[Rfam]
RNA sequence: UCUGGAUCCAUGAUGUCAGAAUCUGCGUUAUCUAUCUGCAAUUUCAUAAAUGGAUUGAAGAUGACAGUAAGUUUCUGAGAUCCAGG
Dot-bracket structure: (((((((........................................................................)))))))
The family of this 86-nucleotide sequence from Protea cynaroides is "Small nucleolar RNA snoR27". Rfam classes the family as a C/D-box small nucleolar RNA.